[Rfam]
RNA sequence: GGACAGGCGAUAGUCGAGUGGGUUCUUCGUUGACACACAAAGCAGCUCCUACAAGCUGUUCCCAGGAUCGGGCCGCUCAAUACCCUCUGACGCAAUCCUGUCCUUUU
Numbered sequence: 001g002g003a004c005a006g007g008c009g010a011u012a013g014u015c016g017a018g019u020g021g022g023u024u025c026u027u028c029g030u031u032g033a034c035a036c037a038c039a040a041a042g043c044a045g046c047u048c049c050u051a052c053a054a055g056c057u058g059u060u061c062c063c064a065g066g067a068u069c070g071g072g073c074c075g076c077u078c079a080a081u082a083c084c085c086u087c088u089g090a091c092g093c094a095a096u097c098c099u100g101u102c103c104u105u106u107u
Stems, first nucleotide, its partner, number of pairs: 002102006013091004018087001020085002027080001029078001

Rfam assigns this 107-nucleotide sequence from Apostichopus japonicus to the family "Vault RNA". The family has 73 seed sequences and 2,873 matches in Rfam 15.1. The family's RNA type in Rfam is non-coding RNA gene. Rfam describes the family as follows. This family of RNAs are found as part of the enigmatic vault ribonucleoprotein complex. The complex consists of a major vault protein (MVP), two minor vault proteins (VPARP and TEP1), and several small untranslated RNA molecules. The match comes from Rfam's covariance-model search (42 bits).